[Rfam]
RNA sequence: GGGAAGCAUCUGUGAAGCUCAGGAGGGAUAGCGCCAUAGAUCUCUCUCCAAACAUGUACACUCUCUCUCUCUCUCUCGAUCUUGAUCAUGCAUGAGGGGAGGAGAUAAAGAGAGAUAGAUUGCGCUAUCCAUCCUGAGUUUCAUCUGAUCUUCUU
Numbered sequence: 001g002g003g004a005a006g007c008a009u010c011u012g013u014g015a016a017g018c019u020c021a022g023g024a025g026g027g028a029u030a031g032c033g034c035c036a037u038a039g040a041u042c043u044c045u046c047u048c049c050a051a052a053c054a055u056g057u058a059c060a061c062u063c064u065c066u067c068u069c070u071c072u073c074u075c076u077c078g079a080u081c082u083u084g085a086u087c088a089u090g091c092a093u094g095a096g097g098g099g100a101g102g103a104g105a106u107a108a109a110g111a112g113a114g115a116u117a118g119a120u121u122g123c124g125c126u127a128u129c130c131a132u133c134c135u136g137a138g139u140u141u142c143a144u145c146u147g148a149u150c151u152u153c154u155u
Stems, first nucleotide, its partner, number of pairs: 016140009026130009

MIR390 microRNA precursor family: a 155-nucleotide RNA from Papaver somniferum. The source organism's lineage runs through Eukaryota, Streptophytina, Embryophyta, Euphyllophyta and Papaver.